[Rfam]
RNA sequence: GAUUUAGCGAUGAUGAUGCUAUUUUUGGACUAGAGUUUCUGAUCUGGUUUUUCUACCAGGUUGAAGACUAACCCUUGGCUGUCUGAGCUUGAUC
Numbered sequence: 001g002a003u004u005u006a007g008c009g010a011u012g013a014u015g016a017u018g019c020u021a022u023u024u025u026u027g028g029a030c031u032a033g034a035g036u037u038u039c040u041g042a043u044c045u046g047g048u049u050u051u052u053c054u055a056c057c058a059g060g061u062u063g064a065a066g067a068c069u070a071a072c073c074c075u076u077g078g079c080u081g082u083c084u085g086a087g088c089u090u091g092a093u094c
Base pairs, nucleotide, nucleotide: 001094002093003092004091006089007088008087036066037065038064039063044059045058046057047056048055
The record is a 94-nucleotide RNA sequence from Apostasia shenzhenica, which matches "Small nucleolar RNA Z157/R69/R10" in Rfam. The family's consensus secondary structure was predicted with PFOLD. A search with the family's covariance model found it, with a score of 80 bits. A reference for the family is Chen et al. (2003), "The high diversity of snoRNAs in plants: identification and comparative study of 120 snoRNA genes from Oryza sativa", Nucleic Acids Res. The family's RNA type in Rfam is C/D-box small nucleolar RNA.